[Rfam]
RNA sequence: GCAUGGAUGAAUUCUGCACUAGCUUUGCUCGGUAGCUAAUGCAGUCAGACACCGUGCCAGAGCAACUUCCUUUUUCACCGUGCCUGGUGUGCUUUUUGAUGGGAAUGGGCAUGCCCUUGGAAGGGGAAUACACAG
Numbered sequence: 001g002c003a004u005g006g007a008u009g010a011a012u013u014c015u016g017c018a019c020u021a022g023c024u025u026u027g028c029u030c031g032g033u034a035g036c037u038a039a040u041g042c043a044g045u046c047a048g049a050c051a052c053c054g055u056g057c058c059a060g061a062g063c064a065a066c067u068u069c070c071u072u073u074u075u076c077a078c079c080g081u082g083c084c085u086g087g088u089g090u091g092c093u094u095u096u097u098g099a100u101g102g103g104a105a106u107g108g109g110c111a112u113g114c115c116c117u118u119g120g121a122a123g124g125g126g127a128a129u130a131c132a133c134a135g
Stems, first nucleotide, its partner, number of pairs: 001057006014044005067128003070124005086115009

Record summary:
Small nucleolar RNA SNORA15: a 135-nucleotide RNA sequence from Dasyornis broadbenti. ACA15 is a member of the H/ACA class of snoRNA that guide the sites of modification of uridines to pseudouridines. It scores 67 bits against the family's covariance model. The family's RNA type in Rfam is H/ACA-box small nucleolar RNA. Rfam 15.1 lists 974 matches to the family in 624 species.